RNA sequence: UUCUUCUUACCAUCAAGUUCUGUGUCGCAACGAUCCCUUCCUCCCCGUGCUCCCUCUCGGGACAUUGGGAUGUGUGAGGUUGAUUGUUCGCGAACGUCUCGACUAUUUUUGUGGAGCCAUUAUCGCACUUCCAUUAAUGACUGAACCCAGUCGACAGAACUGAGAUUGACCCGAGACCUUUUCGCGCCCCUCGGGGCAAGGUCCGUCUUGAGCUCGCCUCUCUCUCGGGAGGUUGAGCUCGACGGGCUGAAAAUGGUGUGUAGGGAGACGUCUUAUUCCCAAGCUUGGUGUGAUCCUCGUCGAGGAAUGACCAUUGGGCGAAACCAAGGCUAUUGUCUACAUUC
Numbered sequence: 001u002u003c004u005u006c007u008u009a010c011c012a013u014c015a016a017g018u019u020c021u022g023u024g025u026c027g028c029a030a031c032g033a034u035c036c037c038u039u040c041c042u043c044c045c046c047g048u049g050c051u052c053c054c055u056c057u058c059g060g061g062a063c064a065u066u067g068g069g070a071u072g073u074g075u076g077a078g079g080u081u082g083a084u085u086g087u088u089c090g091c092g093a094a095c096g097u098c099u100c101g102a103c104u105a106u107u108u109u110u111g112u113g114g115a116g117c118c119a120u121u122a123u124c125g126c127a128c129u130u131c132c133a134u135u136a137a138u139g140a141c142u143g144a145a146c147c148c149a150g151u152c153g154a155c156a157g158a159a160c161u162g163a164g165a166u167u168g169a170c171c172c173g174a175g176a177c178c179u180u181u182u183c184g185c186g187c188c189c190c191u192c193g194g195g196g197c198a199a200g201g202u203c204c205g206u207c208u209u210g211a212g213c214u215c216g217c218c219u220c221u222c223u224c225u226c227g228g229g230a231g232g233u234u235g236a237g238c239u240c241g242a243c244g245g246g247c248u249g250a251a252a253a254u255g256g257u258g259u260g261u262a263g264g265g266a267g268a269c270g271u272c273u274u275a276u277u278c279c280c281a282a283g284c285u286u287g288g289u290g291u292g293a294u295c296c297u298c299g300u301c302g303a304g305g306a307a308u309g310a311c312c313a314u315u316g317g318g319c320g321a322a323a324c325c326a327a328g329g330c331u332a333u334u335g336u337c338u339a340c341a342u343u344c
Base pairs, nucleotide, nucleotide: 016161017160018159019158020157021156022155023154024095025094029088030087032085033084034083035082036079037078038077039076040074041072042070043069044068045067047065048064049063051062052061053060054059103153105151106150107149111141112140116138181262183260187258189256190255204244205243206242207241210240211239212238213237214236215235216233217232218231219230220229221228222227267337268336269335270330271329272328273327274326283319284318285317286316287315295305296304297303298302